[Rfam]
RNA sequence: GGAUGUGAGGGAGAUCUGGCUGCGACAUCUGUCACCCCCAUUGAUUGCCAGGGUUGAUUCGGCUGAUCUGGCUGGCUAGGCAGGUGUCCCCUUCCUCCCUCACCUCUCUAUGUGUGUCCUUCCCAAAGCGGCACACUUGGUGGAAGAGGACGACCACCCUAGACAGAAGAAUUGUAUUGAUCUUCGGUCAAGGGUAUAUGAUAGCUGUGGUCCCCUGCUAGAACCUCCAAACAAGCCAAGCUUAGACUCUGGCUGCAUUUUCCUGGGGAGGGUGAGGUAAGGCUUCAGGGAAAGUAAGGAGCUGGCCUUACCUCCCCU
Numbered sequence: 001g002g003a004u005g006u007g008a009g010g011g012a013g014a015u016c017u018g019g020c021u022g023c024g025a026c027a028u029c030u031g032u033c034a035c036c037c038c039c040a041u042u043g044a045u046u047g048c049c050a051g052g053g054u055u056g057a058u059u060c061g062g063c064u065g066a067u068c069u070g071g072c073u074g075g076c077u078a079g080g081c082a083g084g085u086g087u088c089c090c091c092u093u094c095c096u097c098c099c100u101c102a103c104c105u106c107u108c109u110a111u112g113u114g115u116g117u118c119c120u121u122c123c124c125a126a127a128g129c130g131g132c133a134c135a136c137u138u139g140g141u142g143g144a145a146g147a148g149g150a151c152g153a154c155c156a157c158c159c160u161a162g163a164c165a166g167a168a169g170a171a172u173u174g175u176a177u178u179g180a181u182c183u184u185c186g187g188u189c190a191a192g193g194g195u196a197u198a199u200g201a202u203a204g205c206u207g208u209g210g211u212c213c214c215c216u217g218c219u220a221g222a223a224c225c226u227c228c229a230a231a232c233a234a235g236c237c238a239a240g241c242u243u244a245g246a247c248u249c250u251g252g253c254u255g256c257a258u259u260u261u262c263c264u265g266g267g268g269a270g271g272g273u274g275a276g277g278u279a280a281g282g283c284u285u286c287a288g289g290g291a292a293a294g295u296a297a298g299g300a301g302c303u304g305g306c307c308u309u310a311c312c313u314c315c316c317c318u
Stems, first nucleotide, its partner, number of pairs: 001109003005103007013094002018091002024088010035075002038071003043068004047063003118174001119169004123140004128136001141163001148159002204306003210302002213299002216296003225290003233285005
7SK RNA: a 318-nucleotide sequence from Pseudonaja textilis. Rfam's curators write: 7SK was discovered as an abundant small nuclear RNA in the mid-70s but a possible function has only recently been suggested. Two independent studies have found that 7SK RNA binds the CDK9/cyclin T complex (known as elongation factor P-TEFb). P-TEFb activates transcription by phosphorylating the C-terminal domain of RNA polymerase II. This process is negatively regulated by the 7SK RNP. The secondary structure of 7SK RNA shown here was proposed by Wasserman and Steitz on the basis of chemical modification and enzymatic cleavage experiments. This family contains a number of annotated pseudogenes and 7SK derived repeats. The family's RNA type in Rfam is non-coding RNA gene. On this family, see Blencowe, Curr Biol 2002: "Transcription: surprising role for an elusive small nuclear RNA". The organism belongs to Pseudonaja, within Eukaryota.